A member of the RNA family "Purine riboswitch aptamer" from Caloramator mitchellensis, 102 nucleotides long.
[Rfam]
RNA sequence: AAAUUAAGUUAAUAGUUCAUCCAUAUAAUUUAGGGAAUAUGGCCCUAAAGUCUCUACCGGACUGCCGUAAACUGUCCGACUAUGGAUGAGUCGAUGGGUUAU
Number, nucleotide and partner (000 for none) at each position: 001a000002a000003a000004u000005u000006a000007a000008g000009u000010u000011a000012a000013u000014a000015g000016u000017u000018c088019a087020u086021c085022c084023a083024u082025a081026u000027a000028a000029u049030u048031u047032a046033g045034g044035g043036a000037a000038u000039a000040u000041g000042g000043c035044c034045c033046u032047a031048a030049a029050g000051u000052c000053u000054c000055u000056a000057c000058c078059g077060g076061a075062c074063u000064g072065c000066c000067g000068u000069a000070a000071a000072c064073u000074g062075u061076c060077c059078g058079a000080c000081u025082a024083u023084g022085g021086a020087u019088g018089a000090g000091u000092c000093g000094a000095u000096g000097g000098g000099u000100u000101a000102u000